RNA: msiK RNA
Organism: Mobilicoccus pelagius
RNA sequence: CGCCGUCAUCACUUCACAACGGAUCGUCCGGCACGUUCCUGCCGGUGAAGGAAGGACAA
Numbered sequence: 001c002g003c004c005g006u007c008a009u010c011a012c013u014u015c016a017c018a019a020c021g022g023a024u025c026g027u028c029c030g031g032c033a034c035g036u037u038c039c040u041g042c043c044g045g046u047g048a049a050g051g052a053a054g055g056a057c058a059a
Stems, first nucleotide, its partner, number of pairs: 010051001012050005028045006